Background: The family of this 84-nucleotide RNA from Adiantum capillus-veneris is "SmY spliceosomal RNA". The family's consensus secondary structure is taken from published work. It is annotated as a spliceosomal small nuclear RNA. A search with the family's covariance model found it, with a score of 41 bits. Taxonomically the source falls in Adiantum (Eukaryota, Tracheophyta, Polypodiopsida, Pteridineae).
RNA sequence: UACUAUAUCACAUGUGUUUAGGGGCCUUUUUUAAGACCCGCUGUGAAUUUUUUGAAGAAUUUUGAGCCUUUUACCUCGAAAAUU
Numbered sequence: 001u002a003c004u005a006u007a008u009c010a011c012a013u014g015u016g017u018u019u020a021g022g023g024g025c026c027u028u029u030u031u032u033a034a035g036a037c038c039c040g041c042u043g044u045g046a047a048u049u050u051u052u053u054g055a056a057g058a059a060u061u062u063u064g065a066g067c068c069u070u071u072u073a074c075c076u077c078g079a080a081a082a083u084u
Stems, first nucleotide, its partner, number of pairs: 022039003026035003058083001060081007